[Rfam]
ZMP/ZTP riboswitch aptamer (pfl RNA motif): a 94-nucleotide RNA from Allokutzneria albata. The base pairs follow the family's consensus structure, which is taken from published work.
RNA sequence: UCCGCGGACCGUGACUGGCGCUUGAGGUGGGGCACCACCGGGGAGCGGUCCGGCCGGCGGGAGCCGGUCCGAGCCGCGCGCCUGGGUGCUCAGC
Numbered sequence: 001u002c003c004g005c006g007g008a009c010c011g012u013g014a015c016u017g018g019c020g021c022u023u024g025a026g027g028u029g030g031g032g033c034a035c036c037a038c039c040g041g042g043g044a045g046c047g048g049u050c051c052g053g054c055c056g057g058c059g060g061g062a063g064c065c066g067g068u069c070c071g072a073g074c075c076g077c078g079c080g081c082c083u084g085g086g087u088g089c090u091c092a093g094c
Stems, first nucleotide, its partner, number of pairs: 005052008015042002017082005027038004071089001073087003
Dot-bracket structure: ....((((((((..(([[[[[.....((((....))))..))..))))))))..................(.(((..]]]]]..))).).....